A member of the RNA family "mir-7386 microRNA precursor family" from Monodelphis domestica, 60 nucleotides long. Rfam's curators put it in the seed alignment. Rfam 15.1 lists 118 matches to the family in 4 species. Rfam links the family to the GO terms miRNA-mediated post-transcriptional gene silencing and RISC complex.
RNA sequence: UGGGUGGAUAAGUCACUUUACUUUGUGCAUUCUUUCAAAAGUAAGGGCCUUAUCCAUAGA
Numbered sequence: 001u002g003g004g005u006g007g008a009u010a011a012g013u014c015a016c017u018u019u020a021c022u023u024u025g026u027g028c029a030u031u032c033u034u035u036c037a038a039a040a041g042u043a044a045g046g047g048c049c050u051u052a053u054c055c056a057u058a059g060a
Stems, first nucleotide, its partner, number of pairs: 004057009019043002022039004027035001